Description:
Rfam assigns this 188-nucleotide RNA to the family "Enterococcus sRNA B11". The literature on the family includes a 2011 paper in PLoS One by Shioya et al., "Genome-wide identification of small RNAs in the opportunistic pathogen Enterococcus faecalis V583". The family's RNA type in Rfam is small RNA. The match comes from Rfam's covariance-model search (60 bits).

RNA sequence: GACUAUUGCCUCCCCUUGAAAGGAGGUGAGUUCGUUGAAGGAUUUUCUAACUUUAGUUGUAGCUCCAAUUCUUGUGGGAAUGGUGAAAUCACUAUUCGAUCACUGGCUGGAUGAUCGGCGUAACAACAAAAAACAUAAAUAGUCGCAUUUCCACCCUCAACGUUUGAUAGGUUGCGUCAAGCGAUAAA
Numbered sequence: 001g002a003c004u005a006u007u008g009c010c011u012c013c014c015c016u017u018g019a020a021a022g023g024a025g026g027u028g029a030g031u032u033c034g035u036u037g038a039a040g041g042a043u044u045u046u047c048u049a050a051c052u053u054u055a056g057u058u059g060u061a062g063c064u065c066c067a068a069u070u071c072u073u074g075u076g077g078g079a080a081u082g083g084u085g086a087a088a089u090c091a092c093u094a095u096u097c098g099a100u101c102a103c104u105g106g107c108u109g110g111a112u113g114a115u116c117g118g119c120g121u122a123a124c125a126a127c128a129a130a131a132a133a134c135a136u137a138a139a140u141a142g143u144c145g146c147a148u149u150u151c152c153a154c155c156c157u158c159a160a161c162g163u164u165u166g167a168u169a170g171g172u173u174g175c176g177u178c179a180a181g182c183g184a185u186a187a188a
Base pairs, nucleotide, nucleotide: 001144002143003142004141005140006139007138010025011024012023013022027039054129056127057126058125059124060123062119063118064078065077066076067075080095081094082093083092084091085090096110097109098108100106101105161183162182163181164180165179166178167177